Annotation:
Shown here is an 83-nucleotide RNA from Desulfosporosinus fructosivorans, a member of the family "pan motif". By type it is a cis-regulatory element.
RNA sequence: UGGGCAGUAUCAUUAGAACUGCACCUUAUUGUGGAAUCCAGUUAUUUAUACUGCCUGUAUCCAUUAUGGACCGGGACAGAGGG
Number, nucleotide and partner (000 for none) at each position: 001u000002g025003g024004g022005c021006a020007g019008u018009a000010u017011c016012a000013u000014u000015a000016g011017a010018a008019c007020u006021g005022c004023a000024c003025c002026u000027u000028a000029u000030u000031g000032u000033g000034g000035a000036a000037u000038c000039c000040a000041g000042u000043u000044a000045u000046u000047u000048a000049u000050a000051c079052u078053g077054c075055c074056u073057g072058u000059a000060u070061c069062c068063a000064u000065u000066a000067u000068g062069g061070a060071c000072c057073g056074g055075g054076a000077c053078a052079g051080a000081g000082g000083g000

The match comes from Rfam's covariance-model search (67 bits).